A member of the RNA family "Plastid-psbN 5UTR RNA" from Olea europaea, 61 nucleotides long. On this family, see Richter et al., Plant Commun 2023: "Retrograde signaling in plants: A critical review focusing on the GUN pathway and beyond". The source organism's lineage runs through Eukaryota, eudicotyledons, Pentapetalae, Lamiales and Olea europaea. Rfam describes the family as follows. Plastid psbN is a non-coding RNA (ncRNA) recognised in plastids. It was reported as a conserved 11 stem-loop in the prime untranslated region (5UTR) of psbN genes. It has been reported that the motif is retained in a subset of mature transcripts in barley, which can suggests a possible role in transcript alternative 5 prime processing. It is annotated as a cis-regulatory element. Rfam 15.1 lists 2,345 matches to the family in 397 species. The match comes from Rfam's covariance-model search (59 bits).
RNA sequence: AUAGACACCCAUCAAAGGAGUCGUUCUCUACCCUGGAGCUACUUUACCAUAUUUCAAAUUC
Numbered sequence: 001a002u003a004g005a006c007a008c009c010c011a012u013c014a015a016a017g018g019a020g021u022c023g024u025u026c027u028c029u030a031c032c033c034u035g036g037a038g039c040u041a042c043u044u045u046a047c048c049a050u051a052u053u054u055c056a057a058a059u060u061c
Stems, first nucleotide, its partner, number of pairs: 017045005023039005